[Rfam]
RNA sequence: GAAAGGGCAUAUUUAACAUACCGGAUAUGCCUGGGCGCAUCAGUAUUCCGUCAAAUACGGUACGCCCCAGUUAAA
Numbered sequence: 001g002a003a004a005g006g007g008c009a010u011a012u013u014u015a016a017c018a019u020a021c022c023g024g025a026u027a028u029g030c031c032u033g034g035g036c037g038c039a040u041c042a043g044u045a046u047u048c049c050g051u052c053a054a055a056u057a058c059g060g061u062a063c064g065c066c067c068c069a070g071u072u073a074a075a
Stems, first nucleotide, its partner, number of pairs: 005032010033067005039061003